A member of the RNA family "raiA-hairpin RNA" from Streptomyces sp. R302, 47 nucleotides long.
RNA sequence: CGCCAAGUCCGAGCUCCGGUGAAACCGCCGGAGCUGGUGCAAAGGGA
Numbered sequence: 001c002g003c004c005a006a007g008u009c010c011g012a013g014c015u016c017c018g019g020u021g022a023a024a025c026c027g028c029c030g031g032a033g034c035u036g037g038u039g040c041a042a043a044g045g046g047a
Stems, first nucleotide, its partner, number of pairs: 013034008

It is annotated as a small RNA.